[Rfam]
Rfam assigns this 145-nucleotide RNA from Enterovirga rhinocerotis to the family "speF leader". It is annotated as a cis-regulatory leader. For this family Rfam cites "Evidence for a second class of S-adenosylmethionine riboswitches and other regulatory RNA motifs in alpha-proteobacteria" (Corbino et al., Genome Biol, 2005). NCBI's taxonomy places the organism under Bacteria, Pseudomonadati, Pseudomonadota, Alphaproteobacteria, Enterovirga. The family's consensus secondary structure was predicted with RNAalifold.
RNA sequence: CGCGCACCCUCCACAGGUGCGCACCGAAGAGGCUUGUUUUUCAUUGCCAAGCGUGCGGACGGGAAUCUCCCAUCCAAACGAAGGCAGCAUCGUCGGUUCGACGGUCGGUUUCGAUUCCGUGUCUCCACAGCACGGUUCGGUACAG
Numbered sequence: 001c002g003c004g005c006a007c008c009c010u011c012c013a014c015a016g017g018u019g020c021g022c023a024c025c026g027a028a029g030a031g032g033c034u035u036g037u038u039u040u041u042c043a044u045u046g047c048c049a050a051g052c053g054u055g056c057g058g059a060c061g062g063g064a065a066u067c068u069c070c071c072a073u074c075c076a077a078a079c080g081a082a083g084g085c086a087g088c089a090u091c092g093u094c095g096g097u098u099c100g101a102c103g104g105u106c107g108g109u110u111u112c113g114a115u116u117c118c119g120u121g122u123c124u125c126c127a128c129a130g131c132a133c134g135g136u137u138c139g140g141u142a143c144a145g
Base pairs, nucleotide, nucleotide: 001021002020003019006018007017008016031048032047033046055133057131079095080094103116104115105114106113107112